RNA: Plant small nucleolar RNA U3
RNA sequence: ACGACCUUACUUGAACUAUAGGCUCGUACAUCUGUUUUCUUGAGAAAAUUUCUCAAGAGACAGGCCCUAAACCCUUGUUGAUGAACCGUGACCGUGCGGCUUGAGCGUGAUUGACGGCUACGAUUGUCCUUGGAUGCAUCCGGUGCUGUAGAGGAUGGUUACUCGGCUCGGUUCUCCCUUGCCGGGGUGGUCGCACGGCGGUCUGACAGGUU
Numbered sequence: 001a002c003g004a005c006c007u008u009a010c011u012u013g014a015a016c017u018a019u020a021g022g023c024u025c026g027u028a029c030a031u032c033u034g035u036u037u038u039c040u041u042g043a044g045a046a047a048a049u050u051u052c053u054c055a056a057g058a059g060a061c062a063g064g065c066c067c068u069a070a071a072c073c074c075u076u077g078u079u080g081a082u083g084a085a086c087c088g089u090g091a092c093c094g095u096g097c098g099g100c101u102u103g104a105g106c107g108u109g110a111u112u113g114a115c116g117g118c119u120a121c122g123a124u125u126g127u128c129c130u131u132g133g134a135u136g137c138a139u140c141c142g143g144u145g146c147u148g149u150a151g152a153g154g155a156u157g158g159u160u161a162c163u164c165g166g167c168u169c170g171g172u173u174c175u176c177c178c179u180u181g182c183c184g185g186g187g188u189g190g191u192c193g194c195a196c197g198g199c200g201g202u203c204u205g206a207c208a209g210g211u212u
Base pairs, nucleotide, nucleotide: 001027002026003024005022006021007020032063033062034061035060038058039057040056041055042054043053044052045051073210074209075208092198093197094196095195096194097193098192099191100190101189104160105159106158114149115148116147117146118145121142122140123139124138125136126135127134128133162186163185164184165183166182167181170178171177